The family of this 174-nucleotide RNA from Clostridium neonatale is "Lysine riboswitch aptamer".
[Rfam]
RNA sequence: GUAAGAGAUAGAGGCGCAAUAUUUAAUAGUAAUAUUAUGGAGCUAAGCACUUUGAAGUAAUAUGAAAGGAAAUAUUGCCGAAGUCUAUAACUAAUGCUUUAAGGUUAUAGAGCUGGGGUUGCAUAGAAUAUAUGCAAAACUGUCACAAGUACUUUGUGGUGAGCUAUCAUUCGU
Numbered sequence: 001g002u003a004a005g006a007g008a009u010a011g012a013g014g015c016g017c018a019a020u021a022u023u024u025a026a027u028a029g030u031a032a033u034a035u036u037a038u039g040g041a042g043c044u045a046a047g048c049a050c051u052u053u054g055a056a057g058u059a060a061u062a063u064g065a066a067a068g069g070a071a072a073u074a075u076u077g078c079c080g081a082a083g084u085c086u087a088u089a090a091c092u093a094a095u096g097c098u099u100u101a102a103g104g105u106u107a108u109a110g111a112g113c114u115g116g117g118g119u120u121g122c123a124u125a126g127a128a129u130a131u132a133u134g135c136a137a138a139a140c141u142g143u144c145a146c147a148a149g150u151a152c153u154u155u156g157u158g159g160u161g162a163g164c165u166a167u168c169a170u171u172c173g174u
Base pairs, nucleotide, nucleotide: 007168008167009166010165011164016078017077018076019075020074021073022072023071024070032063033062034061035060036059037058038057082114083113084112085110086109087108088107089106090105091104092103115141116140119137120136121135122134123133124132125131143159144158145157146156147155148154149153
Dot-bracket structure: ......(((((....(((((((((.......(((((((..................)))))))......)))))))))...(((((((((((..........)))))))).)))((..(((((((.....)))))))..)).(((((((...)))))))....)))))......
Description
Its family is annotated with lysine biosynthetic process in the Gene Ontology. On this family, see Mandal et al., Cell 2003: "Riboswitches Control Fundamental Biochemical Pathways in Bacillus subtilis and Other Bacteria".